[Rfam]
Nucleotides: 137
Base pairs, nucleotide, nucleotide: 002042003041004040005039007038008037009035010034011033012032013031014030015029017027065131066130067129070126071125072124077118078117079116080115081114083112084111085110088104089103
Number, partner (000 for none) and nucleotide at each position: 001000a002042g003041g004040c005039a006000g007038c008037c009035c010034c011033c012032u013031u014030g015029c016000g017027a018000c019000u020000g021000a022000a023000a024000a025000a026000a027017u028000g029015g030014c031013a032012a033011g034010g035009g036000a037008g038007g039005u040004g041003u042002u043000a044000u045000u046000u047000u048000g049000c050000u051000c052000a053000g054000a055000a056000a057000u058000c059000a060000a061000g062000u063000u064000u065131c066130u067129u068000u069000u070126g071125c072124u073000c074000u075000u076000c077118a078117g079116a080115u081114u082000u083112g084111c085110u086000g087000a088104g089103a090000u091000g092000g093000u094000u095000u096000u097000a098000a099000c100000c101000a102000u103089u104088u105000u106000c107000u108000g109000a110085a111084g112083c113000u114081g115080g116079u117078c118077u119000a120000g121000u122000a123000a124072a125071g126070c127000u128000u129067a130066a131065g132000c133000a134000c135000a136000u137000u